[Rfam]
RNA sequence: UGCAAUCUCGCCUGACACUCGGUCUCAACCUGUGCAUAUGAGAAGGUGAGCAAAGUCUCAGGUGUCAUUGCAC
Numbered sequence: 001u002g003c004a005a006u007c008u009c010g011c012c013u014g015a016c017a018c019u020c021g022g023u024c025u026c027a028a029c030c031u032g033u034g035c036a037u038a039u040g041a042g043a044a045g046g047u048g049a050g051c052a053a054a055g056u057c058u059c060a061g062g063u064g065u066c067a068u069u070g071c072a073c
Stems, first nucleotide, its partner, number of pairs: 002071005009064007017056003024050004029046003
Annotation: This 73-nucleotide RNA sequence from Gongylonema pulchrum belongs to the Rfam family "mir-87 microRNA precursor family". It scores 56 bits against the family's covariance model. Gene Ontology terms of the family: miRNA-mediated post-transcriptional gene silencing and RISC complex. A reference for the family is Ruby et al. (2007), "Evolution, biogenesis, expression, and target predictions of a substantially expanded set of Drosophila microRNAs", Genome Res. Pairs were carried over by alignment from the consensus structure, which was predicted with RNAalifold.